[Rfam]
RNA sequence: UAUCCUUGGUUUCCGGCAAAAAUGACACCCUCAGCCGGAGCAUAUUGAUGA
Numbered sequence: 001u002a003u004c005c006u007u008g009g010u011u012u013c014c015g016g017c018a019a020a021a022a023u024g025a026c027a028c029c030c031u032c033a034g035c036c037g038g039a040g041c042a043u044a045u046u047g048a049u050g051a
Stems, first nucleotide, its partner, number of pairs: 013038005
Dot-bracket structure: ............(((((................))))).............
Rfam assigns this 51-nucleotide RNA sequence from Citrobacter rodentium to the family "PyrC leader".
Rfam's curators put it in the seed alignment.
Lineage of the source: Bacteria > Gammaproteobacteria > Enterobacteriaceae > Citrobacter > Citrobacter rodentium.
For this family Rfam cites "Regulation of pyrimidine biosynthetic gene expression in bacteria: repression without repressors" (Turnbough and Switzer, Microbiol Mol Biol Rev, 2008).
Gene Ontology term of the family: regulation of gene expression.